[Rfam]
RNA sequence: GAGUCUAACAUCUAUGCGAGUGUUCGGGUGUCAAACCCCUACGCGGAAUGAAAGUGAACGGAGGUGGGAAGGGGCAACCCUGCACCAUCGACCGAUCCUGAUGUCCUCGGAUGGAUUUGAGUAAGAGCAUAGCUGUUGGGACCCGAAAGAUGGUGAACUAUGCCUGAAUAGGGUGAAGCCAGAGGAAACUCUGGUGGAGGCUCGCAGCGGUUCUGACGUGCAAAUCGAUCGUCAAAUUUGGGUAUAGGGGCGAAAGACUAAUCGAACCAUCUAGUAGCUGGUU
Numbered sequence: 001g002a003g004u005c006u007a008a009c010a011u012c013u014a015u016g017c018g019a020g021u022g023u024u025c026g027g028g029u030g031u032c033a034a035a036c037c038c039c040u041a042c043g044c045g046g047a048a049u050g051a052a053a054g055u056g057a058a059c060g061g062a063g064g065u066g067g068g069a070a071g072g073g074g075c076a077a078c079c080c081u082g083c084a085c086c087a088u089c090g091a092c093c094g095a096u097c098c099u100g101a102u103g104u105c106c107u108c109g110g111a112u113g114g115a116u117u118u119g120a121g122u123a124a125g126a127g128c129a130u131a132g133c134u135g136u137u138g139g140g141a142c143c144c145g146a147a148a149g150a151u152g153g154u155g156a157a158c159u160a161u162g163c164c165u166g167a168a169u170a171g172g173g174u175g176a177a178g179c180c181a182g183a184g185g186a187a188a189c190u191c192u193g194g195u196g197g198a199g200g201c202u203c204g205c206a207g208c209g210g211u212u213c214u215g216a217c218g219u220g221c222a223a224a225u226c227g228a229u230c231g232u233c234a235a236a237u238u239u240g241g242g243u244a245u246a247g248g249g250g251c252g253a254a255a256g257a258c259u260a261a262u263c264g265a266a267c268c269a270u271c272u273a274g275u276a277g278c279u280g281g282u283u
Stems, first nucleotide, its partner, number of pairs: 005139006012132006020044003026038004048055002063089005070081003091122002093119003096115003102109002142281002145278001149271006158247011169235001171203004178195007207232004212228002215226002249259002
RNA: Eukaryotic large subunit ribosomal RNA, nucleotides 648 to 930